[Rfam]
RNA: MIR5298 microRNA precursor family
RNA sequence: UUAGAUUUUCUUCAUUUUCUUCUGAAAUUUUUAUGGCAUUCUUGUUGUUGAAGGUUGAUGGAGAUCAUAUGAAAAUGAAAAAGAGGAAAAG
Numbered sequence: 001u002u003a004g005a006u007u008u009u010c011u012u013c014a015u016u017u018u019c020u021u022c023u024g025a026a027a028u029u030u031u032u033a034u035g036g037c038a039u040u041c042u043u044g045u046u047g048u049u050g051a052a053g054g055u056u057g058a059u060g061g062a063g064a065u066c067a068u069a070u071g072a073a074a075a076u077g078a079a080a081a082a083g084a085g086g087a088a089a090a091g
Base pairs, nucleotide, nucleotide: 006084007083008082009081011079012078013077014076015075016074017073018072019071038055039054040053042051043050